RNA sequence: GCCCAAUUUCGCACGUGCCUGUGGUUGCGUGCCGGUUGGUGGGCAUCCGGACAAGAGGCCGGACAGCCGCCCGAAGACUUGGGAAUGCGCCGGGGAUCUGCCGGGCCGUGUUCCAGGGGCGUCGCAAGACGCGGGGUCUUCGAUACCUAACCGGCAGCCGGAGGCAAACCGGCGAACCCUGCCCUCCGCAGGGGACGCGACUUGAAGCAACGACGAUCGGGCUUUU
Numbered sequence: 001g002c003c004c005a006a007u008u009u010c011g012c013a014c015g016u017g018c019c020u021g022u023g024g025u026u027g028c029g030u031g032c033c034g035g036u037u038g039g040u041g042g043g044c045a046u047c048c049g050g051a052c053a054a055g056a057g058g059c060c061g062g063a064c065a066g067c068c069g070c071c072c073g074a075a076g077a078c079u080u081g082g083g084a085a086u087g088c089g090c091c092g093g094g095g096a097u098c099u100g101c102c103g104g105g106c107c108g109u110g111u112u113c114c115a116g117g118g119g120c121g122u123c124g125c126a127a128g129a130c131g132c133g134g135g136g137u138c139u140u141c142g143a144u145a146c147c148u149a150a151c152c153g154g155c156a157g158c159c160g161g162a163g164g165c166a167a168a169c170c171g172g173c174g175a176a177c178c179c180u181g182c183c184c185u186c187c188g189c190a191g192g193g194g195a196c197g198c199g200a201c202u203u204g205a206a207g208c209a210a211c212g213a214c215g216a217u218c219g220g221g222c223u224u225u226u
Base pairs, nucleotide, nucleotide: 001222002221003220004219009213010212011211016209017208018207023202024201025200026199027198028197029196030195038071039070040069041068042067046063047062048061049060050059183193184192185191

Shown here is a 226-nucleotide sequence from Phreatobacter cathodiphilus, a member of the family "Alphaproteobacterial sRNA ar45". The pairing is the family consensus, mapped onto this sequence. The family's RNA type in Rfam is small RNA.